Rfam assigns this 396-nucleotide RNA sequence from Syntrophotalea carbinolica to the family "Bacterial RNase P class A". Rfam describes the family as follows. Ribonuclease P (RNase P) is a ubiquitous endoribonuclease, found in archaea, bacteria and eukarya as well as chloroplasts and mitochondria. It is one of the family's seed sequences. Rfam classes the family as a ribozyme.

RNA sequence: GGAGAGCGCCAGAUGAUCGUCGGCUCGUUCCGUUUCGGCGGUAGCGGGCGGGAGGAAAGUCCGGGCUCCGCAGGGCGGGAUGGUUCUUAACGGGAACCGGGGGUGACCCCAGGGACAGUGCCACAGAAAGCAAACCGCCUGUCGAAGUCGAGGCUUGGGCAGGUAAGGGUGAAACGGUGAGGUAAGAGCUCACCAGUUCCGACGGCGACGCCGGAAGCUAGGUAAACCCCAUCCGGAGCAAGGCCAAAUAGGGAAGUGUUUGAGGGCGGCCCGUCCGAGACUUCCGGGUUGGUUGCUUGAGGCCGUCGGCAACGGCGGUCCUAGAGGAAUGAUCAUCGCCCUCCGUGCGGGUAACCGGCGGGGGGAACAGGACCCGGCUUACGGUUCUCUCCGGCC
Numbered sequence: 001g002g003a004g005a006g007c008g009c010c011a012g013a014u015g016a017u018c019g020u021c022g023g024c025u026c027g028u029u030c031c032g033u034u035u036c037g038g039c040g041g042u043a044g045c046g047g048g049c050g051g052g053a054g055g056a057a058a059g060u061c062c063g064g065g066c067u068c069c070g071c072a073g074g075g076c077g078g079g080a081u082g083g084u085u086c087u088u089a090a091c092g093g094g095a096a097c098c099g100g101g102g103g104u105g106a107c108c109c110c111a112g113g114g115a116c117a118g119u120g121c122c123a124c125a126g127a128a129a130g131c132a133a134a135c136c137g138c139c140u141g142u143c144g145a146a147g148u149c150g151a152g153g154c155u156u157g158g159g160c161a162g163g164u165a166a167g168g169g170u171g172a173a174a175c176g177g178u179g180a181g182g183u184a185a186g187a188g189c190u191c192a193c194c195a196g197u198u199c200c201g202a203c204g205g206c207g208a209c210g211c212c213g214g215a216a217g218c219u220a221g222g223u224a225a226a227c228c229c230c231a232u233c234c235g236g237a238g239c240a241a242g243g244c245c246a247a248a249u250a251g252g253g254a255a256g257u258g259u260u261u262g263a264g265g266g267c268g269g270c271c272c273g274u275c276c277g278a279g280a281c282u283u284c285c286g287g288g289u290u291g292g293u294u295g296c297u298u299g300a301g302g303c304c305g306u307c308g309g310c311a312a313c314g315g316c317g318g319u320c321c322u323a324g325a326g327g328a329a330u331g332a333u334c335a336u337c338g339c340c341c342u343c344c345g346u347g348c349g350g351g352u353a354a355c356c357g358g359c360g361g362g363g364g365g366a367a368c369a370g371g372a373c374c375c376g377g378c379u380u381a382c383g384g385u386u387c388u389c390u391c392c393g394g395c396c
Stems, first nucleotide, its partner, number of pairs: 001392006008385003012337007020052002023049006057380003061377005066238004073272004078234005083097005098112001099110004113229002118227002120223003135168002137164007145156004176194006196218001197216005203210002242294004252285006264276004301320008